[Rfam]
RNA sequence: AAGUUAUCACGAGUGGACGAGAGAUCUGGCUCUAUGACUCCACAGCAACCUACCAACGUAAGGUGCUCCUACCAGCAAAGCAUUAGCUUUGGGUGAUAAGAC
Numbered sequence: 001a002a003g004u005u006a007u008c009a010c011g012a013g014u015g016g017a018c019g020a021g022a023g024a025u026c027u028g029g030c031u032c033u034a035u036g037a038c039u040c041c042a043c044a045g046c047a048a049c050c051u052a053c054c055a056a057c058g059u060a061a062g063g064u065g066c067u068c069c070u071a072c073c074a075g076c077a078a079a080g081c082a083u084u085a086g087c088u089u090u091g092g093g094u095g096a097u098a099a100g101a102c
Stems, first nucleotide, its partner, number of pairs: 004099005013043005021032003026075004044067004049063002051060003071094001076091006
RNA: SAM riboswitch aptamer (S box leader)
Organism: Priestia veravalensis